[Rfam]
RNA sequence: AUACAAAACAAACAAUCUAACAAUCCCCCUUUCGUUCACCACCAAACCAACCUCAACAUGUCUCCCUGCUCCUGCUCCACUUGCUCCUGCAGCAAUGACUGCAACGGCUGCUCCUGCACUGCCUGCGGUGUAAGUGUCC
Numbered sequence: 001a002u003a004c005a006a007a008a009c010a011a012a013c014a015a016u017c018u019a020a021c022a023a024u025c026c027c028c029c030u031u032u033c034g035u036u037c038a039c040c041a042c043c044a045a046a047c048c049a050a051c052c053u054c055a056a057c058a059u060g061u062c063u064c065c066c067u068g069c070u071c072c073u074g075c076u077c078c079a080c081u082u083g084c085u086c087c088u089g090c091a092g093c094a095a096u097g098a099c100u101g102c103a104a105c106g107g108c109u110g111c112u113c114c115u116g117c118a119c120u121g122c123c124u125g126c127g128g129u130g131u132a133a134g135u136g137u138c139c
Base pairs, nucleotide, nucleotide: 067091068090069089074084075083101126102125103124110117111116
A member of the RNA family "A. fumigatus sRNA Afu_254" from Penicillium brasilianum, 139 nucleotides long. The base pairs follow the family's consensus structure, which was predicted with WAR. A search with the family's covariance model found it, with a score of 63 bits. Rfam 15.1 lists 185 matches to the family in 142 species. For this family Rfam cites "Small ncRNA transcriptome analysis from Aspergillus fumigatus suggests a novel mechanism for regulation of protein synthesis" (Jochl et al., Nucleic Acids Res, 2008).